Rfam assigns this 147-nucleotide RNA from Drosophila albomicans to the family "Small nucleolar RNA psi18S-1377". The family's consensus secondary structure was predicted with RNAalifold. The organism belongs to Drosophila, within Eukaryota. Rfam's curators write: psi18S-1377 is a member of the H/ACA class of snoRNA. This family is responsible for guiding the modification of uridines 1377 and 1279 to pseudouridine in Drosophila 18S rRNA.

[Rfam]
RNA sequence: CCGUUCUUGUGUUAUUUGCUGAAUUCGCAUUAUCGUUCAGUGAUCGUCAGAAAGAACGCAUAGUGACUCCCAAACCAGUUUAUCACUCCACAUUGUUGAGCCUCUUUUUUCCAAGGCUGCUACAAUACUAACCCGCUGGUUACAAAC
Numbered sequence: 001c002c003g004u005u006c007u008u009g010u011g012u013u014a015u016u017u018g019c020u021g022a023a024u025u026c027g028c029a030u031u032a033u034c035g036u037u038c039a040g041u042g043a044u045c046g047u048c049a050g051a052a053a054g055a056a057c058g059c060a061u062a063g064u065g066a067c068u069c070c071c072a073a074a075c076c077a078g079u080u081u082a083u084c085a086c087u088c089c090a091c092a093u094u095g096u097u098g099a100g101c102c103u104c105u106u107u108u109u110u111c112c113a114a115g116g117c118u119g120c121u122a123c124a125a126u127a128c129u130a131a132c133c134c135g136c137u138g139g140u141u142a143c144a145a146a147c
Base pairs, nucleotide, nucleotide: 002058003057004056005055006054007053010049011048016043017042018041019040020039021038022037092126093125094124095123096122099118100117101116102115
It scores 108 bits against the family's covariance model.